[Rfam]
RNA: mir-210 microRNA precursor family
Organism: Spodoptera exigua
RNA sequence: AUGAAGCCCAAAGCAGCUGCUGGCCACUGCACAAGAUUAGUUAGACCUAUACUCUUGUGCGUGUGACAGCGGCUAUUGCGGGCUAUUCAUUGUCUUCG
Numbered sequence: 001a002u003g004a005a006g007c008c009c010a011a012a013g014c015a016g017c018u019g020c021u022g023g024c025c026a027c028u029g030c031a032c033a034a035g036a037u038u039a040g041u042u043a044g045a046c047c048u049a050u051a052c053u054c055u056u057g058u059g060c061g062u063g064u065g066a067c068a069g070c071g072g073c074u075a076u077u078g079c080g081g082g083c084u085a086u087u088c089a090u091u092g093u094c095u096u097c098g
Stems, first nucleotide, its partner, number of pairs: 005084005012077001015074008024065001025063002028061006035054002